[Rfam]
RNA sequence: AGGGAACUGGUUUCAGAUGGUGUCUUAGAGUAUACAAUCCUAUCUAGCACCAUUUGAAAUCGGUGUUCU
Numbered sequence: 001a002g003g004g005a006a007c008u009g010g011u012u013u014c015a016g017a018u019g020g021u022g023u024c025u026u027a028g029a030g031u032a033u034a035c036a037a038u039c040c041u042a043u044c045u046a047g048c049a050c051c052a053u054u055u056g057a058a059a060u061c062g063g064u065g066u067u068c069u
Stems, first nucleotide, its partner, number of pairs: 001069004005064001007063009017053006026046004
Description:
Shown here is a 69-nucleotide sequence from Stegastes partitus, a member of the family "mir-29 microRNA precursor family". A reference for the family is Ambros (2001), "microRNAs: tiny regulators with great potential", Cell. This family represents the microRNA (miRNA) precursors mir-29. Gene Ontology terms of the family: RISC complex and gene silencing by miRNA. It scores 66 bits against the family's covariance model. The base pairs follow the family's consensus structure, which was predicted with PFOLD.